[Rfam]
RNA sequence: AGUAGUAGAAGCAAAGAAUGGUGAGAAUCCAUUCCGCCGAAGGGGCUAGGUUUCCUCGGCAAUGUUCGUCAGCCGAGGGUUAGUCGGUCCUAAGCUGCAUCAUAAGUUGCAUGCAGCAAAAGGGAAACAGGUUAAUAUUCCUGUACCGUGCGUUAAUAUACUGACGCAUCGGGUUAUGCAUAGCGGGACCGUCGUCCCGUCCAAUCGUAUAAACUCUUGGAGUACCGUAAUGGUGAGAAUUGAGUGAAAGCGUGAUGGCGUAAGUGUGUAAACACCUGGUGCCCGUGAAAAGGUAACGCAAUGUCCGUACCGAGAACCGACACAGGUGCCCCUAGUUGAAAAGACUCAGGCGUGU
Numbered sequence: 001a002g003u004a005g006u007a008g009a010a011g012c013a014a015a016g017a018a019u020g021g022u023g024a025g026a027a028u029c030c031a032u033u034c035c036g037c038c039g040a041a042g043g044g045g046c047u048a049g050g051u052u053u054c055c056u057c058g059g060c061a062a063u064g065u066u067c068g069u070c071a072g073c074c075g076a077g078g079g080u081u082a083g084u085c086g087g088u089c090c091u092a093a094g095c096u097g098c099a100u101c102a103u104a105a106g107u108u109g110c111a112u113g114c115a116g117c118a119a120a121a122g123g124g125a126a127a128c129a130g131g132u133u134a135a136u137a138u139u140c141c142u143g144u145a146c147c148g149u150g151c152g153u154u155a156a157u158a159u160a161c162u163g164a165c166g167c168a169u170c171g172g173g174u175u176a177u178g179c180a181u182a183g184c185g186g187g188a189c190c191g192u193c194g195u196c197c198c199g200u201c202c203a204a205u206c207g208u209a210u211a212a213a214c215u216c217u218u219g220g221a222g223u224a225c226c227g228u229a230a231u232g233g234u235g236a237g238a239a240u241u242g243a244g245u246g247a248a249a250g251c252g253u254g255a256u257g258g259c260g261u262a263a264g265u266g267u268g269u270a271a272a273c274a275c276c277u278g279g280u281g282c283c284c285g286u287g288a289a290a291a292g293g294u295a296a297c298g299c300a301a302u303g304u305c306c307g308u309a310c311c312g313a314g315a316a317c318c319g320a321c322a323c324a325g326g327u328g329c330c331c332c333u334a335g336u337u338g339a340a341a342a343g344a345c346u347c348a349g350g351c352g353u354g355u
Stems, first nucleotide, its partner, number of pairs: 016034006035352004043331004049311002054078006063071002085307003089123002094117006101109002127144005147303003150299004160294003166282009177270005183200005206252003214244003224234003259264001317326002334346003
RNA: Archaeal large subunit ribosomal RNA, nucleotides 1362 to 1716